RNA sequence: GUCUGUCCAGUGCCCUUUUUAUGUUGUACUACUAGUGAUGCUGCACAAAAAGCAGUGCAAUGUUAAAAGGGCAUUGGCCAGCAA
Numbered sequence: 001g002u003c004u005g006u007c008c009a010g011u012g013c014c015c016u017u018u019u020u021a022u023g024u025u026g027u028a029c030u031a032c033u034a035g036u037g038a039u040g041c042u043g044c045a046c047a048a049a050a051a052g053c054a055g056u057g058c059a060a061u062g063u064u065a066a067a068a069g070g071g072c073a074u075u076g077g078c079c080a081g082c083a084a
Stems, first nucleotide, its partner, number of pairs: 002083001005079001007077004012072008022062009
Record summary:
mir-130 microRNA precursor family: an 84-nucleotide RNA sequence from Xiphorhynchus elegans. For this family Rfam cites "Identification of tissue-specific microRNAs from mouse" (Lagos-Quintana et al., Curr Biol, 2002). A search with the family's covariance model found it, with a score of 51 bits. Taxonomically the source falls in Xiphorhynchus (Eukaryota, Bilateria, Chordata, Archelosauria).